[Rfam]
This 96-nucleotide RNA sequence from Actinoplanes derwentensis belongs to the Rfam family "Glycine riboswitch aptamer". A search with the family's covariance model found it, with a score of 63 bits.
RNA sequence: ACUGCCGCCGCGGGAGAGCCCCCGUGAGGCACACGGGGCGCCGAAGGAGCAACUUCUCCCUCAGAAUCUCUCAGGCUCACGUACCGCAGUGGUCAG
Numbered sequence: 001a002c003u004g005c006c007g008c009c010g011c012g013g014g015a016g017a018g019c020c021c022c023c024g025u026g027a028g029g030c031a032c033a034c035g036g037g038g039c040g041c042c043g044a045a046g047g048a049g050c051a052a053c054u055u056c057u058c059c060c061u062c063a064g065a066a067u068c069u070c071u072c073a074g075g076c077u078c079a080c081g082u083a084c085c086g087c088a089g090u091g092g093u094c095a096g
Stems, first nucleotide, its partner, number of pairs: 006091003010087004020038004040076003043072002047070003053064002

Background
Rfam 15.1 lists 9,425 matches to the family in 5,228 species.